This 164-nucleotide RNA from Aminicella lysinilytica belongs to the Rfam family "raiA RNA". Lineage of the source: Bacteria > Bacillati > Bacillota > Clostridia > Aminicella. It scores 143 bits against the family's covariance model.

[Rfam]
RNA sequence: GUUAUUCGGGUCUGUGGUUGAAAAUCCAUGCCAGAUACGGGCAAAGGGAUCCACGUAAACCGGGGCAGAGAGCCCCGGCGAGCAUGGCGUAUUCUAGAUGUAAGUCCUCGGGAAAAUCCCGGUUAAGGCGAGUGUGGGGGCAAAGACCAGGUCAGCCGAAUAAC
Numbered sequence: 001g002u003u004a005u006u007c008g009g010g011u012c013u014g015u016g017g018u019u020g021a022a023a024a025u026c027c028a029u030g031c032c033a034g035a036u037a038c039g040g041g042c043a044a045a046g047g048g049a050u051c052c053a054c055g056u057a058a059a060c061c062g063g064g065g066c067a068g069a070g071a072g073c074c075c076c077g078g079c080g081a082g083c084a085u086g087g088c089g090u091a092u093u094c095u096a097g098a099u100g101u102a103a104g105u106c107c108u109c110g111g112g113a114a115a116a117u118c119c120c121g122g123u124u125a126a127g128g129c130g131a132g133u134g135u136g137g138g139g140g141c142a143a144a145g146a147c148c149a150g151g152u153c154a155g156c157c158g159a160a161u162a163a164c
Stems, first nucleotide, its partner, number of pairs: 001164009012155003015149005028135003031041001034093006050087002060077001062075003085142001106128003109121005
It is annotated as a riboswitch. The family's consensus secondary structure is taken from published work.